[Rfam]
RNA: glmS glucosamine-6-phosphate activated ribozyme aptamer
Organism: Ruminococcaceae bacterium CPB6
RNA sequence: AGCUUAAAAAAAGCGCCAGACGCACAGGUGUGGGCAGGCCGCGGAGGCUUUGCCCGGUGACAGCACCCCAAGCGUGACGAGGAGAAGUGUGAUCGAAGGUUUCGGCGGAUGCACUUCCGGCUGCAUGAAGCGGGCAGUCGUCAGACGAUGUACAAAGUGUGAUGCGGUGUCGGCACCCCGUGGAGAAUCACUCAGAAAAGCAUCGUUAUUUCCGUGA
Numbered sequence: 001a002g003c004u005u006a007a008a009a010a011a012a013g014c015g016c017c018a019g020a021c022g023c024a025c026a027g028g029u030g031u032g033g034g035c036a037g038g039c040c041g042c043g044g045a046g047g048c049u050u051u052g053c054c055c056g057g058u059g060a061c062a063g064c065a066c067c068c069c070a071a072g073c074g075u076g077a078c079g080a081g082g083a084g085a086a087g088u089g090u091g092a093u094c095g096a097a098g099g100u101u102u103c104g105g106c107g108g109a110u111g112c113a114c115u116u117c118c119g120g121c122u123g124c125a126u127g128a129a130g131c132g133g134g135c136a137g138u139c140g141u142c143a144g145a146c147g148a149u150g151u152a153c154a155a156a157g158u159g160u161g162a163u164g165c166g167g168u169g170u171c172g173g174c175a176c177c178c179c180g181u182g183g184a185g186a187a188u189c190a191c192u193c194a195g196a197a198a199a200g201c202a203u204c205g206u207u208a209u210u211u212c213c214g215u216g217a
Stems, first nucleotide, its partner, number of pairs: 020075004084117005093105004118140006144207007159191005